[Rfam]
RNA sequence: CCAAUCAACCCAAGAACUGCAAAUAUACCAAAACCCUAAUACAUGUUAAAUGUAACGGCUAUUCAACGGCAAUCUAUAUAUCUAUAGAUAAAGGGAGAGAAGGAUAGGGGUUAUCUGUGAAAUAAGAGAUAUGAAUACACAGAGCAGUUCUUUU
Numbered sequence: 001c002c003a004a005u006c007a008a009c010c011c012a013a014g015a016a017c018u019g020c021a022a023a024u025a026u027a028c029c030a031a032a033a034c035c036c037u038a039a040u041a042c043a044u045g046u047u048a049a050a051u052g053u054a055a056c057g058g059c060u061a062u063u064c065a066a067c068g069g070c071a072a073u074c075u076a077u078a079u080a081u082c083u084a085u086a087g088a089u090a091a092a093g094g095g096a097g098a099g100a101a102g103g104a105u106a107g108g109g110g111u112u113a114u115c116u117g118u119g120a121a122a123u124a125a126g127a128g129a130u131a132u133g134a135a136u137a138c139a140c141a142g143a144g145c146a147g148u149u150c151u152u153u154u
Stems, first nucleotide, its partner, number of pairs: 012152008027111003040054002058070003072089007114143006